[Rfam]
RNA sequence: UCCGCGCGAAUCUCUCAAGACAAAGAGAACUUCGGUUCUCGUCGUCAUUUAUCAUGCAUGUGGGAAAUUCGGAGUAAGCCUCAACCCUACCAACCGUACCGUCAUCUGGCAGUAUUUUGGCUUGGUCUGCCGGUAACGGCCUGGCGUCAAUGUCACGUCUGCAAAUGAUAUCAGAAAUCUCAGAGCGGGCGACUCGUCUCGUCCGUACUCUAUGGGAAGUCUUUGCGAGGCUCGUUGUAGAAAAACUGAAGUGCGAUACGCGGCGUCCUGUUUGCUUGCGAGCAGGAUGACUCAAUUCCGAUCACUCUGGGGAGGGC
Numbered sequence: 001u002c003c004g005c006g007c008g009a010a011u012c013u014c015u016c017a018a019g020a021c022a023a024a025g026a027g028a029a030c031u032u033c034g035g036u037u038c039u040c041g042u043c044g045u046c047a048u049u050u051a052u053c054a055u056g057c058a059u060g061u062g063g064g065a066a067a068u069u070c071g072g073a074g075u076a077a078g079c080c081u082c083a084a085c086c087c088u089a090c091c092a093a094c095c096g097u098a099c100c101g102u103c104a105u106c107u108g109g110c111a112g113u114a115u116u117u118u119g120g121c122u123u124g125g126u127c128u129g130c131c132g133g134u135a136a137c138g139g140c141c142u143g144g145c146g147u148c149a150a151u152g153u154c155a156c157g158u159c160u161g162c163a164a165a166u167g168a169u170a171u172c173a174g175a176a177a178u179c180u181c182a183g184a185g186c187g188g189g190c191g192a193c194u195c196g197u198c199u200c201g202u203c204c205g206u207a208c209u210c211u212a213u214g215g216g217a218a219g220u221c222u223u224u225g226c227g228a229g230g231c232u233c234g235u236u237g238u239a240g241a242a243a244a245a246c247u248g249a250a251g252u253g254c255g256a257u258a259c260g261c262g263g264c265g266u267c268c269u270g271u272u273u274g275c276u277u278g279c280g281a282g283c284a285g286g287a288u289g290a291c292u293c294a295a296u297u298c299c300g301a302u303c304a305c306u307c308u309g310g311g312g313a314g315g316g317c
Stems, first nucleotide, its partner, number of pairs: 001316003007310001009308001013263002016260001020061003025040006070300005079230004129140004143159005161226005167220001182211003265288009

This 317-nucleotide RNA sequence from Fusarium graminearum belongs to the Rfam family "Nuclear RNase P".